[Rfam]
RNA sequence: GAUACCCGUAGAUCACCAAGGGAUCUAGAGUGGGUUGAGUCACAACUCGCACCAUUUCAGAGGCGGCAUCGUACAGCCCGCCCCAAUACAUGGCUUUGCCCACCAAUAACAGGGCACCCAUGCCUAAAAACAGGAGAUGAUGACCAAGAAUAAUGCCCAAUUGCUUCGGGUCAUCCCA
Number, nucleotide and partner (000 for none) at each position: 001g000002a000003u000004a000005c000006c000007c000008g000009u000010a000011g000012a000013u000014c000015a000016c000017c000018a000019a000020g000021g000022g000023a000024u000025c000026u000027a000028g000029a000030g000031u000032g000033g000034g000035u000036u000037g000038a000039g000040u000041c000042a000043c000044a000045a000046c000047u000048c000049g000050c000051a000052c000053c000054a000055u000056u000057u000058c000059a000060g000061a000062g000063g000064c000065g000066g000067c000068a000069u000070c000071g000072u000073a000074c000075a000076g000077c000078c000079c000080g000081c000082c000083c000084c000085a000086a000087u000088a000089c000090a000091u000092g000093g000094c000095u000096u000097u000098g000099c000100c000101c000102a000103c000104c000105a000106a000107u000108a000109a000110c000111a000112g000113g000114g000115c000116a000117c000118c000119c000120a000121u000122g000123c000124c000125u000126a000127a000128a000129a000130a000131c000132a000133g000134g000135a000136g175137a174138u173139g172140a171141u170142g000143a000144c169145c168146a000147a166148g165149a000150a000151u000152a000153a000154u000155g000156c000157c000158c000159a000160a000161u000162u000163g000164c000165u148166u147167c000168g145169g144170g141171u140172c139173a138174u137175c136176c000177c000178a000

About this RNA:
This 178-nucleotide sequence from Halomicronema hongdechloris belongs to the Rfam family "Antisense RNA which regulates isiA expression". A search with the family's covariance model found it, with a score of 117 bits. The base pairs follow the family's consensus structure, which was predicted with PFOLD.